[Rfam]
RNA sequence: GCAGUAAUUAGAAUAGAGAUAAAUAGAAAGCACUUUCCAGUGUCUGUGUUUUGCAUUCAGAUCUUGCUAUCCACACAAACAUCAUGCAGCCCAAGAGUAAGUUGGGAUCAUAGUACUGGUCCAGUGCUGUCUCAUUGGACAUAAUUUACCACUGGCCAGCCUCCAAAUUCCCAUACAGAA
Number, nucleotide and partner (000 for none) at each position: 001g000002c000003a000004g000005u000006a000007a000008u000009u000010a000011g087012a000013a085014u084015a000016g000017a000018g000019a000020u077021a000022a000023a000024u073025a000026g071027a000028a000029a068030g067031c066032a065033c000034u000035u000036u061037c060038c000039a000040g000041u059042g058043u000044c000045u055046g054047u053048g000049u000050u000051u000052u000053g047054c046055a045056u000057u000058c042059a041060g037061a036062u000063c000064u000065u032066g031067c030068u029069a000070u000071c026072c000073a024074c000075a000076c000077a020078a000079a000080c000081a000082u000083c000084a014085u013086g000087c011088a000089g000090c000091c000092c000093a000094a000095g000096a000097g000098u000099a000100a000101g000102u000103u173104g172105g171106g170107a169108u000109c000110a000111u000112a000113g000114u000115a000116c159117u158118g157119g156120u155121c154122c000123a153124g152125u151126g150127c000128u143129g142130u141131c000132u139133c138134a000135u000136u000137g000138g133139a132140c000141a130142u129143a128144a000145u000146u000147u000148a000149c000150c126151a125152c124153u123154g121155g120156c119157c118158a117159g116160c000161c000162u000163c000164c000165a000166a000167a000168u000169u107170c106171c105172c104173a103174u000175a000176c000177a000178g000179a000180a000